[Rfam]
Source information: The record is an 88-nucleotide sequence from Nyctiprogne leucopyga, which matches "mir-1426 microRNA precursor family" in Rfam. Taxonomically the source falls in Nyctiprogne (Eukaryota, Archosauria, Dinosauria, Theropoda). The base pairs follow the family's consensus structure, which was predicted with RNAalifold. Gene Ontology terms of the family: miRNA-mediated post-transcriptional gene silencing and RISC complex. It scores 74 bits against the family's covariance model. The family has 2 seed sequences and 326 matches in Rfam 15.1.

RNA sequence: CAGCGUUGAUCCUCUAUCCUUAACUCAUGCCGCUGUGCUUUUUUAUUUAUUUCACAAUCGUGUGAGUUGAGUACAGAGUGUCAGUCCG
Numbered sequence: 001c002a003g004c005g006u007u008g009a010u011c012c013u014c015u016a017u018c019c020u021u022a023a024c025u026c027a028u029g030c031c032g033c034u035g036u037g038c039u040u041u042u043u044u045a046u047u048u049a050u051u052u053c054a055c056a057a058u059c060g061u062g063u064g065a066g067u068u069g070a071g072u073a074c075a076g077a078g079u080g081u082c083a084g085u086c087c088g
Stems, first nucleotide, its partner, number of pairs: 005085006012078002019071010034056004